[Rfam]
RNA sequence: GAUUCGAUAGUAUGGUAGAAAGAAAUAUAUGAAUCUUUCUACCAUACUUAUUAUUGUUAUAAAAAAGUCGUACUCUAAAGAU
Numbered sequence: 001g002a003u004u005c006g007a008u009a010g011u012a013u014g015g016u017a018g019a020a021a022g023a024a025a026u027a028u029a030u031g032a033a034u035c036u037u038u039c040u041a042c043c044a045u046a047c048u049u050a051u052u053a054u055u056g057u058u059a060u061a062a063a064a065a066a067g068u069c070g071u072a073c074u075c076u077a078a079a080g081a082u
Stems, first nucleotide, its partner, number of pairs: 009048015
This 82-nucleotide sequence from Morella rubra belongs to the Rfam family "Plastid-psbM 3UTR RNA". By type it is a cis-regulatory element. A reference for the family is Richter et al. (2023), "Retrograde signaling in plants: A critical review focusing on the GUN pathway and beyond", Plant Commun. Rfam's curators write: Plastid psbM is a non-coding RNA (ncRNA) recognised in plastids. Pairs were carried over by alignment from the consensus structure, which was predicted with LocARNA. The organism belongs to Morella, within Eukaryota. A search with the family's covariance model found it, with a score of 54 bits.